[Rfam]
RNA sequence: CACCCCCUUUUCACUUUGCCAAUUGGACUUAUGUCUUUAUUGGUCAUUCAAGUGGGGCAAAAGAAAUAUCCUUUUAAAACUCAGGCAAACUGGGUGUUUGUCUUGGAUCCUGUCAGAGGAAACAGGU
Numbered sequence: 001c002a003c004c005c006c007c008u009u010u011u012c013a014c015u016u017u018g019c020c021a022a023u024u025g026g027a028c029u030u031a032u033g034u035c036u037u038u039a040u041u042g043g044u045c046a047u048u049c050a051a052g053u054g055g056g057g058c059a060a061a062a063g064a065a066a067u068a069u070c071c072u073u074u075u076a077a078a079a080c081u082c083a084g085g086c087a088a089a090c091u092g093g094g095u096g097u098u099u100g101u102c103u104u105g106g107a108u109c110c111u112g113u114c115a116g117a118g119g120a121a122a123c124a125g126g127u
Stems, first nucleotide, its partner, number of pairs: 032059005040051004069120006082105001083103008

The record is a 127-nucleotide sequence from Echinops telfairi, which matches "Small nucleolar RNA SNORA27" in Rfam. Taxonomically the source falls in Echinops (Eukaryota, Eumetazoa, Gnathostomata, Tenrecidae). The family is grouped with related families in Rfam's "SNORA27 clan". The family has 24 seed sequences and 819 matches in Rfam 15.1. About the family: ACA27 is a member of the H/ACA class of snoRNA that guide the sites of modification of uridines to pseudouridines.